[Rfam]
RNA sequence: GCUAUGUGAUGAUACUCCCGAUGACUGAACGCUCCAUAGUUGGUCCAUGGAGUGUGUAUGAUGGAGUGCACUGUUUCAAGACGGGACUGAUGGCAGC
Numbered sequence: 001g002c003u004a005u006g007u008g009a010u011g012a013u014a015c016u017c018c019c020g021a022u023g024a025c026u027g028a029a030c031g032c033u034c035c036a037u038a039g040u041u042g043g044u045c046c047a048u049g050g051a052g053u054g055u056g057u058a059u060g061a062u063g064g065a066g067u068g069c070a071c072u073g074u075u076u077c078a079a080g081a082c083g084g085g086a087c088u089g090a091u092g093g094c095a096g097c
Stems, first nucleotide, its partner, number of pairs: 001094004

The family of this 97-nucleotide sequence from Egretta garzetta is "Small nucleolar RNA SNORD21".
Rfam classes the family as a C/D-box small nucleolar RNA.
A reference for the family is Renalier et al. (1996), "SnoRNA U21 is also intron-encoded in Drosophila melanogaster but in a different host-gene as compared to warm-blooded vertebrates", FEBS Lett.